[Rfam]
Background
Bacterial RNase P class A: a 405-nucleotide RNA from Geomesophilobacter sediminis. The family's RNA type in Rfam is ribozyme.

RNA sequence: GAAGCAGACCAGAUGGCCGCCGCCCGCCGUAGCCUUGUGCGAAGGCGGGGGGAGGAAAGUCCGGGCUCCGCAGGGCAUGGUGCUGGAUAACGUCCAGCGGGGGCAACCCCAGGGAUAGUGCCACAGAGAGAAGUCCGCCCGCCAAAACCUCGGCUUCGGCUCUGGCAACGGCAGGUAAGGGUGAAAGGGUGAGGUAAGAGCUCACCGGGUCCGGCGGUGACGUCGGAUGCCAGGUAAACCCCACCAGGAGCAAGACCAAAUAGGGGAGCGUUAAGGGCGGCCCGUCCGUGCUCCCGGGUUGGUUGCUUGAGGCCGUCGGCAACGGCGGUCCUAGAUGAAUGACCAUCGCCCGUCCCCGGGUAACCGGGGCCGGGAACAGAACCCGGCUUACGGGCUGCUUCGACC
Numbered sequence: 001g002a003a004g005c006a007g008a009c010c011a012g013a014u015g016g017c018c019g020c021c022g023c024c025c026g027c028c029g030u031a032g033c034c035u036u037g038u039g040c041g042a043a044g045g046c047g048g049g050g051g052g053a054g055g056a057a058a059g060u061c062c063g064g065g066c067u068c069c070g071c072a073g074g075g076c077a078u079g080g081u082g083c084u085g086g087a088u089a090a091c092g093u094c095c096a097g098c099g100g101g102g103g104c105a106a107c108c109c110c111a112g113g114g115a116u117a118g119u120g121c122c123a124c125a126g127a128g129a130g131a132a133g134u135c136c137g138c139c140c141g142c143c144a145a146a147a148c149c150u151c152g153g154c155u156u157c158g159g160c161u162c163u164g165g166c167a168a169c170g171g172c173a174g175g176u177a178a179g180g181g182u183g184a185a186a187g188g189g190u191g192a193g194g195u196a197a198g199a200g201c202u203c204a205c206c207g208g209g210u211c212c213g214g215c216g217g218u219g220a221c222g223u224c225g226g227a228u229g230c231c232a233g234g235u236a237a238a239c240c241c242c243a244c245c246a247g248g249a250g251c252a253a254g255a256c257c258a259a260a261u262a263g264g265g266g267a268g269c270g271u272u273a274a275g276g277g278c279g280g281c282c283c284g285u286c287c288g289u290g291c292u293c294c295c296g297g298g299u300u301g302g303u304u305g306c307u308u309g310a311g312g313c314c315g316u317c318g319g320c321a322a323c324g325g326c327g328g329u330c331c332u333a334g335a336u337g338a339a340u341g342a343c344c345a346u347c348g349c350c351c352g353u354c355c356c357c358g359g360g361u362a363a364c365c366g367g368g369g370c371c372g373g374g375a376a377c378a379g380a381a382c383c384c385g386g387c388u389u390a391c392g393g394g395c396u397g398c399u400u401c402g403a404c405c
Stems, first nucleotide, its partner, number of pairs: 001401007009393002012347005018341001020052002023049006057389003061386005066250004073283004078246005083097005098112001099110004113241002118239002120235003135180002137176003141172003188206006208230001209228008254304004264295006275287004311330008
Pairs were carried over by alignment from the consensus structure, which is taken from published work.